[Rfam]
RNA sequence: UUUUAAGCCUAAGUAUGUCCCAUGUAAUAUUUGGGAAAUACUUACACUAAAA
Numbered sequence: 001u002u003u004u005a006a007g008c009c010u011a012a013g014u015a016u017g018u019c020c021c022a023u024g025u026a027a028u029a030u031u032u033g034g035g036a037a038a039u040a041c042u043u044a045c046a047c048u049a050a051a052a
Stems, first nucleotide, its partner, number of pairs: 006048002010044003014040003018036004022031001